[Rfam]
RNA sequence: GCAAACUCUGGAGAGAGGCGCUUCGGGCGCCCACCGAAGGGGAUGGCACACCGCCGUCAGGUGCGCCCAAGCUCUCAGGUACCGUGACAGAUGGGGUAGU
Dot-bracket structure: ......((((......((((.......)))).(((((..(((..((...................))....))))).))).......)))).........
RNA: Glycine riboswitch aptamer